[Rfam]
RNA sequence: GUUUUGAUGGCAGUGAGGUUAGUGAUUGUGGCUGAGGGAGACAAUCAGCUAACUGCACUGCCUGCAAACC
Numbered sequence: 001g002u003u004u005u006g007a008u009g010g011c012a013g014u015g016a017g018g019u020u021a022g023u024g025a026u027u028g029u030g031g032c033u034g035a036g037g038g039a040g041a042c043a044a045u046c047a048g049c050u051a052a053c054u055g056c057a058c059u060g061c062c063u064g065c066a067a068a069c070c
Stems, first nucleotide, its partner, number of pairs: 003068004009062002012059004017054006023047007
The record is a 70-nucleotide sequence from Malurus elegans, which matches "mir-34 microRNA precursor family" in Rfam. The match comes from Rfam's covariance-model search (55 bits). The organism belongs to Malurus, within Eukaryota. For this family Rfam cites "Vertebrate microRNA genes" (Lim et al., Science, 2003). Pairs were carried over by alignment from the consensus structure, which was predicted with RNAalifold. From the family's description: Human mir-34a was discovered computationally and later experimentally verified. The mature sequence is excised from the 5' arm of the hairpin.